[Rfam]
Rfam assigns this 95-nucleotide sequence from a Plautia stali symbiont to the family "Guanidine-I riboswitch aptamer". Lineage of the source: Bacteria > Pseudomonadati > Pseudomonadota > Enterobacterales > Enterobacteriaceae. Pairs were carried over by alignment from the consensus structure.
RNA sequence: GCAAUGGGUCACUAGGGUUCCGAUCGCGAGAUGCUGGUCCGAGAGUGACCGACCGUCCUCUGACGGUUACACGGCGGGAAAAAAGCCCGAGAGGA
Numbered sequence: 001g002c003a004a005u006g007g008g009u010c011a012c013u014a015g016g017g018u019u020c021c022g023a024u025c026g027c028g029a030g031a032u033g034c035u036g037g038u039c040c041g042a043g044a045g046u047g048a049c050c051g052a053c054c055g056u057c058c059u060c061u062g063a064c065g066g067u068u069a070c071a072c073g074g075c076g077g078g079a080a081a082a083a084a085g086c087c088c089g090a091g092a093g094g095a
Stems, first nucleotide, its partner, number of pairs: 007050006015040002020037002022034001023032003051068007072093001076088003